[Rfam]
RNA sequence: ACAGCUGCCAUAAUGGCCAUAGCAGAAGCCUUCACAUCACGGCCCCUGUCAGAUGCCAAUGAAUCUGCCCAAUUCUGCU
Dot-bracket structure: ..............[[[[..((((((((...........)]]]].....(((((.(....).))))).....)))))))
Mammalian CPEB3 ribozyme: a 79-nucleotide RNA from Alligator sinensis.